Shown here is a 39-nucleotide RNA from Citrobacter freundii, a member of the family "JUMPstart RNA".

RNA sequence: UAGUGUACGGGUAGCUGUUAAGCCUGGGGCGGUAGCGUG
Numbered sequence: 001u002a003g004u005g006u007a008c009g010g011g012u013a014g015c016u017g018u019u020a021a022g023c024c025u026g027g028g029g030c031g032g033u034a035g036c037g038u039g
Base pairs, nucleotide, nucleotide: 008026009025010024011023012022
Annotation:
Rfam classes the family as a cis-regulatory element. The match comes from Rfam's covariance-model search (53 bits). The base pairs follow the family's consensus structure, which is taken from published work. The source organism's lineage runs through Bacteria, Enterobacterales, Enterobacteriaceae, Citrobacter and Citrobacter freundii complex.